The family of this 32-nucleotide sequence from Bacillus sp. FJAT-14578 is "L31-Firmicutes ribosomal protein leader". The family's consensus secondary structure is taken from published work.

RNA sequence: CUCUGUUUCAGAAUGAUUCAGGGCGGAAGGAG
Numbered sequence: 001c002u003c004u005g006u007u008u009c010a011g012a013a014u015g016a017u018u019c020a021g022g023g024c025g026g027a028a029g030g031a032g
Stems, first nucleotide, its partner, number of pairs: 001023005008016003